[Rfam]
RNA sequence: CCUCGUCGACCUGCUGCGGGCAGAUGCAGUGCACGUGCGUGUCGAUGCCGCCGGUCGUUACGAUCUUGCCCUCGGCGGCGACGACGUCGGUGCAGCUGCCGACGACCAUGUUGGGCGUGACGCCGUCCAUGACGUCCGGGCUGCCAGCUUUGCCGAUGCCGACGAUGACGCCCUGCUUGACGCCGAUGUCGGCUUUGUAGAUGCCGCUCCAGUCGACGAUGAGCGCGUUGGUGAUGACUAGGUCGAGAGAGUCGGCGUCGGUCCGUCCAGAGGCCUGGCCCAUGCCCUCGCGCAG
Numbered sequence: 001c002c003u004c005g006u007c008g009a010c011c012u013g014c015u016g017c018g019g020g021c022a023g024a025u026g027c028a029g030u031g032c033a034c035g036u037g038c039g040u041g042u043c044g045a046u047g048c049c050g051c052c053g054g055u056c057g058u059u060a061c062g063a064u065c066u067u068g069c070c071c072u073c074g075g076c077g078g079c080g081a082c083g084a085c086g087u088c089g090g091u092g093c094a095g096c097u098g099c100c101g102a103c104g105a106c107c108a109u110g111u112u113g114g115g116c117g118u119g120a121c122g123c124c125g126u127c128c129a130u131g132a133c134g135u136c137c138g139g140g141c142u143g144c145c146a147g148c149u150u151u152g153c154c155g156a157u158g159c160c161g162a163c164g165a166u167g168a169c170g171c172c173c174u175g176c177u178u179g180a181c182g183c184c185g186a187u188g189u190c191g192g193c194u195u196u197g198u199a200g201a202u203g204c205c206g207c208u209c210c211a212g213u214c215g216a217c218g219a220u221g222a223g224c225g226c227g228u229u230g231g232u233g234a235u236g237a238c239u240a241g242g243u244c245g246a247g248a249g250a251g252u253c254g255g256c257g258u259c260g261g262u263c264c265g266u267c268c269a270g271a272g273g274c275c276u277g278g279c280c281c282a283u284g285c286c287c288u289c290g291c292g293c294a295g
Base pairs, nucleotide, nucleotide: 002295003294007290008289009288012164013163015161016160018076022072023071030053031052034050035049037048038047039046040045057069058068077154078153081150083148092144093143094142095141096140099139100138101136102135103134109131110130112129113128114127115126116125117123118122170279171278172277176270177269179267180266181265182264184261192226193225195223196222229260230259231258236253237252
Dot-bracket structure: .((...(((..((.((.(...((......((..((.((((....)))))).))...((.........)).))...)((..(.(........(((((..(((((.....((.(((((((...)).)))))))..))).)))))))...).)..)).....)).)).....(((...((.((((.(.......((.((.........................)).))..(((....((..............))....))))..)))).))......)))........)))...))